[Rfam]
RNA sequence: UUCCAUCUCACAUUUUGAUGUAAUUAUCAAUUGACAUAAAUUUUGGGGUUUUAUAAUUAGAAAGACAAUGUAGUAUGCACAUGGAGCGGCCAGACAACCCUAGCGAUGGAAUCCUCAGGUGUUGAGUGUUGAGUUUUUUCAUUUCUACUAAUUCCAUCUCACAUUG
Numbered sequence: 001u002u003c004c005a006u007c008u009c010a011c012a013u014u015u016u017g018a019u020g021u022a023a024u025u026a027u028c029a030a031u032u033g034a035c036a037u038a039a040a041u042u043u044u045g046g047g048g049u050u051u052u053a054u055a056a057u058u059a060g061a062a063a064g065a066c067a068a069u070g071u072a073g074u075a076u077g078c079a080c081a082u083g084g085a086g087c088g089g090c091c092a093g094a095c096a097a098c099c100c101u102a103g104c105g106a107u108g109g110a111a112u113c114c115u116c117a118g119g120u121g122u123u124g125a126g127u128g129u130u131g132a133g134u135u136u137u138u139u140c141a142u143u144u145c146u147a148c149u150a151a152u153u154c155c156a157u158c159u160c161a162c163a164u165u166g
Base pairs, nucleotide, nucleotide: 001055005049006048008046009045010044012042014040015039016038017037019036020035021034023032103160105158106157107156108155109154110153121143123141124140125139126138
Rfam assigns this 166-nucleotide sequence from Trifolium medium to the family "small nucleolar RNA snoR143". The base pairs follow the family's consensus structure, which was predicted with RNAalifold. For this family Rfam cites "Mining small RNA sequencing data: a new approach to identify small nucleolar RNAs in Arabidopsis" (Chen and Wu, Nucleic Acids Res, 2009). Rfam classes the family as an H/ACA-box small nucleolar RNA. Rfam 15.1 lists 660 matches to the family in 212 species.